[Rfam]
RNA sequence: GGUGAGCACGGCGACUGGCGUACGCGGAAUGACCGCGGUGGAGCCGUGCCCUCAGGAGCAGACGAGACACCGCCCGCCUGGGUGUCCCGG
Numbered sequence: 001g002g003u004g005a006g007c008a009c010g011g012c013g014a015c016u017g018g019c020g021u022a023c024g025c026g027g028a029a030u031g032a033c034c035g036c037g038g039u040g041g042a043g044c045c046g047u048g049c050c051c052u053c054a055g056g057a058g059c060a061g062a063c064g065a066g067a068c069a070c071c072g073c074c075c076g077c078c079u080g081g082g083u084g085u086c087c088c089g090g
Stems, first nucleotide, its partner, number of pairs: 004051001006049007015040001017078004024036004067085005